[Rfam]
RNA: Small nucleolar RNA Z162
Organism: Cocos nucifera
Nucleotides: 086
Base pairs, nucleotide, nucleotide: 004084005083006082007081008080010074011073012072013071014070015069016068
Number, partner (000 for none) and nucleotide at each position: 001000u002000u003000g004084g005083g006082c007081a008080c009000c010074a011073u012072g013071a014070g015069g016068a017000a018000g019000u020000u021000g022000c023000u024000a025000a026000u027000g028000a029000u030000u031000g032000g033000g034000u035000g036000a037000g038000g039000c040000a041000a042000u043000g044000u045000c046000u047000g048000a049000u050000g051000a052000g053000u054000a055000u056000a057000c058000c059000u060000a061000u062000a063000a064000g065000u066000c067000c068016u069015u070014u071013u072012c073011a074010u075000u076000c077000u078000g079000a080008g081007u082006g083005c084004c085000c086000a